The family of this 169-nucleotide sequence from Clostridium sp. 7_2_43FAA is "Lysine riboswitch aptamer". Lineage of the source: Bacteria > Bacillati > Bacillota > Clostridia > Clostridium. A reference for the family is Mandal et al. (2003), "Riboswitches Control Fundamental Biochemical Pathways in Bacillus subtilis and Other Bacteria", Cell. A search with the family's covariance model found it, with a score of 111 bits.

[Rfam]
RNA sequence: GACCAAGGUAGAGGUGCUGUUAUUAAUAGUAUUUAUAAUGAGCUUUGCAAAGUGAUGAAUUAUAAAGAAAGGAUUAACAGCCGAAGAAAUAUAUCAUUGCAAUGAUUUAUUUCUGGGGAUACAUAUAAUAUAUGUAUCACUGUCACGUAAGUGGAGGGCUACAAGGCAA
Dot-bracket structure: .......((((....(((((((.(.......((((((((...................))))))))......).)))))))...(((((((.((((......)))).)))))))((.((((((((.....)))))))).)).((((....))))....)))).......